[Rfam]
Nucleotides: 131
Stems, first nucleotide, its partner, number of pairs: 006119004011080004016074001017067005086111004092105004
Number, partner (000 for none) and nucleotide at each position: 001000g002000a003000g004000a005000c006119g007118c008117a009116c010000c011080a012079g013078g014077g015000g016074u017067g018066c019065c020064u021063g022000c023000a024000u025000c026000u027000g028000u029000u030000u031000u032000g033000c034000u035000c036000u037000g038000g039000c040000u041000g042000u043000u044000u045000g046000g047000c048000u049000g050000g051000a052000a053000u054000g055000c056000g057000g058000c059000a060000g061000g062000u063021c064020a065019g066018g067017c068000u069000g070000a071000g072000a073000u074016a075000g076000u077014c078013c079012c080011u081000u082000u083000g084000a085000a086111c087110c088109u089108g090000a091000a092105c093104a094103g095102g096000a097000u098000a099000a100000u101000g102095c103094c104093u105092g106000c107000g108089u109088a110087g111086g112000g113000a114000g115000u116009g117008u118007g119006c120000a121000u122000u123000u124000u125000c126000u127000c128000u129000c130000u131000u